The family of this 110-nucleotide RNA from Actinomadura spongiicola is "Glycine riboswitch aptamer".
RNA sequence: GCGCCUCUGGAAAGCAGACGUCGCUUCCCGCGCCGCGGGACGGCGCUCACCGAAGGGGAAAUCCCGCGACGCGGGGGAAGCUCUCAGGUGCCGAUGACAGAGGGGGAGAC
Numbered sequence: 001g002c003g004c005c006u007c008u009g010g011a012a013a014g015c016a017g018a019c020g021u022c023g024c025u026u027c028c029c030g031c032g033c034c035g036c037g038g039g040a041c042g043g044c045g046c047u048c049a050c051c052g053a054a055g056g057g058g059a060a061a062u063c064c065c066g067c068g069a070c071g072c073g074g075g076g077g078a079a080g081c082u083c084u085c086a087g088g089u090g091c092c093g094a095u096g097a098c099a100g101a102g103g104g105g106g107a108g109a110c
Stems, first nucleotide, its partner, number of pairs: 002105001004103006016047002049089003052085002056083003062076005